About this RNA:
Rfam assigns this 103-nucleotide RNA from Corynebacterium otitidis to the family "mraW RNA". The family's consensus secondary structure is taken from published work. Taxonomically the source falls in Corynebacterium otitidis (Bacteria, Actinomycetota, Actinomycetes, Corynebacteriaceae). It scores 58 bits against the family's covariance model.
RNA sequence: AGGGGCCGCCCGGAUGGACCUCUAUCCGGACCGGGGUUCUGGUGUACUUCCCCGACAUCAGAGCGCCGGCCCGGGUGGGGCUCCAUGCGGACGACCCGCGGGG
Dot-bracket structure: .........(((.((.((.((((((((((.((((.((((((((((.........)))))))))).)))).)))))))))).)).)).))).............

By type it is a cis-regulatory element.